Shown here is a 211-nucleotide RNA sequence from Streptomyces clavuligerus, a member of the family "c-di-AMP riboswitch aptamer (ydaO/yuaA leader)".
Its family is annotated with regulation of gene expression and cyclic-di-AMP binding in the Gene Ontology.

[Rfam]
RNA sequence: ACGCGCAGAGCGCCGAAGGCAGGAGCGGGGGACCCAAGGUAAGCGCCGGUCCCGGUCGCUGACGGACGGUUCGGUGCACGAGGAGUGCGCCGGAACCGGACGCCGGUGGGCCGACCGGCUUGGGGUGGAGCCGCGCGCAAGGACGCGCGGCCGGGCAACUCACACGGCCCGAACCCGACAGCUCACCUCGUAGGCGUCGGUGAGGAGACCU
Numbered sequence: 001a002c003g004c005g006c007a008g009a010g011c012g013c014c015g016a017a018g019g020c021a022g023g024a025g026c027g028g029g030g031g032a033c034c035c036a037a038g039g040u041a042a043g044c045g046c047c048g049g050u051c052c053c054g055g056u057c058g059c060u061g062a063c064g065g066a067c068g069g070u071u072c073g074g075u076g077c078a079c080g081a082g083g084a085g086u087g088c089g090c091c092g093g094a095a096c097c098g099g100a101c102g103c104c105g106g107u108g109g110g111c112c113g114a115c116c117g118g119c120u121u122g123g124g125g126u127g128g129a130g131c132c133g134c135g136c137g138c139a140a141g142g143a144c145g146c147g148c149g150g151c152c153g154g155g156c157a158a159c160u161c162a163c164a165c166g167g168c169c170c171g172a173a174c175c176c177g178a179c180a181g182c183u184c185a186c187c188u189c190g191u192a193g194g195c196g197u198c199g200g201u202g203a204g205g206a207g208a209c210c211u
Stems, first nucleotide, its partner, number of pairs: 011196004025191006035122004123176003131150006153170004

It scores 49 bits against the family's covariance model.